[Rfam]
RNA sequence: UGAAGGGCCGUGUCAACCGGGCUUGACGGUACAGCGAACAAGGGUAGGAUUUUCCCGGUUUCUCCCCUUGGCCAACGAAACGGCAGACGAGCGCUUGUCCCGUCCGGCCC
Numbered sequence: 001u002g003a004a005g006g007g008c009c010g011u012g013u014c015a016a017c018c019g020g021g022c023u024u025g026a027c028g029g030u031a032c033a034g035c036g037a038a039c040a041a042g043g044g045u046a047g048g049a050u051u052u053u054c055c056c057g058g059u060u061u062c063u064c065c066c067c068u069u070g071g072c073c074a075a076c077g078a079a080a081c082g083g084c085a086g087a088c089g090a091g092c093g094c095u096u097g098u099c100c101c102g103u104c105c106g107g108c109c110c
Stems, first nucleotide, its partner, number of pairs: 006109004012022003025104003028100002033095004039070006071084003